[Rfam]
Record summary: Shown here is a 253-nucleotide RNA sequence from Pseudomonas sp. M30-35, a member of the family "Pseudomonas sRNA P24". Lineage of the source: Bacteria > Pseudomonadati > Pseudomonadota > Gammaproteobacteria > Pseudomonas. This small RNA (sRNA) was computationally identified in the genome of the opportunistic pathogen Pseudomonas aeruginosa and its expression verified by Northern blot analysis. The base pairs follow the family's consensus structure, which was predicted with RNAalifold.
RNA sequence: UUGCGCAACAGGUAGUUGAGUUAGCAAUAUUCGCAAUCAUUCACUCGUCGGCUCGCCGUACUAUUUAUCUCAGUUUCAAGGCCCGGACGACAUGUCCACGCCGACUCACUCAAUCAGGUGAGCGGCCGCCGCCGAUCCAACAGGGUCGUUUCGGCACCCGGGUCCGCACUGUCCAAUCAGACGGGCGAUAAAGGCGGCGACACAAUUGCCAGCACAGGACAACAUUCCCGAAGGGAGGCCGAGAGGCCUCCCU
Number, nucleotide and partner (000 for none) at each position: 001u012002u011003g000004c000005g000006c000007a000008a000009c000010a000011g002012g001013u000014a000015g000016u000017u000018g000019a000020g000021u000022u000023a000024g000025c000026a000027a000028u000029a000030u000031u000032c000033g000034c000035a000036a000037u000038c000039a000040u000041u000042c000043a000044c000045u000046c000047g000048u000049c000050g000051g000052c000053u000054c000055g000056c000057c000058g000059u000060a000061c000062u000063a000064u000065u000066u000067a000068u000069c000070u000071c000072a000073g000074u000075u000076u192077c000078a000079a000080g189081g163082c162083c161084c160085g097086g096087a095088c094089g000090a000091c000092a000093u000094g088095u087096c086097c085098a000099c000100g126101c125102c124103g123104a000105c122106u000107c000108a119109c118110u117111c000112a000113a000114u000115c000116a000117g110118g109119u108120g000121a000122g105123c103124g102125g101126c100127c000128g155129c154130c153131g152132c000133c000134g147135a146136u145137c144138c143139a000140a000141c000142a000143g138144g137145g136146u135147c134148g000149u000150u000151u000152c131153g130154g129155c128156a000157c000158c000159c000160g084161g083162g082163u081164c000165c187166g186167c185168a000169c184170u183171g182172u181173c180174c000175a000176a000177u000178c000179a000180g173181a172182c171183g170184g169185g167186c166187g165188a000189u080190a000191a000192a076193g000194g213195c000196g210197g209198c208199g207200a206201c000202a000203c000204a000205a000206u200207u199208g198209c197210c196211a000212g000213c194214a000215c000216a000217g000218g000219a000220c000221a000222a000223c000224a000225u000226u000227c000228c000229c000230g000231a000232a253233g252234g251235g250236a000237g248238g247239c246240c245241g000242a000243g000244a000245g240246g239247c238248c237249u000250c235251c234252c233253u232